RNA sequence: AGCCUCCUUCUAGAUUACAAUGGACCCUGCUGAUUGUGUCCAAAAUUGGUUAAUGUGGCUAAAAUUGAGACACAGGUCAUGGUUCCAUUACAGUAAACUUUUGCAGUGGUGACAAUGAGACAUGUAAUAUUU
Number, nucleotide and partner (000 for none) at each position: 001a000002g059003c058004c057005u000006c055007c000008u053009u000010c000011u000012a000013g000014a000015u000016u000017a000018c000019a000020a000021u042022g041023g040024a039025c038026c000027c036028u000029g000030c000031u000032g000033a000034u000035u000036g027037u000038g025039u024040c023041c022042a021043a000044a000045a000046u000047u000048g000049g000050u000051u000052a000053a008054u000055g006056u000057g004058g003059c002060u000061a000062a000063a000064a000065u000066u000067g000068a000069g000070a000071c000072a125073c124074a123075g000076g121077u000078c000079a000080u000081g000082g000083u000084u000085c000086c111087a110088u109089u108090a107091c106092a000093g000094u000095a000096a000097a000098c000099u000100u000101u000102u000103g000104c000105a000106g091107u090108g089109g088110u087111g086112a000113c000114a000115a000116u000117g000118a000119g000120a000121c076122a000123u074124g073125u072126a000127a000128u000129a000130u000131u000132u000
The record is a 132-nucleotide RNA sequence from Chinchilla lanigera, which matches "Small nucleolar RNA SNORA1" in Rfam. The family has 29 seed sequences and 1,282 matches in Rfam 15.1. A search with the family's covariance model found it, with a score of 111 bits. Taxonomically the source falls in Chinchilla (Eukaryota, Eumetazoa, Euteleostomi, Sarcopterygii).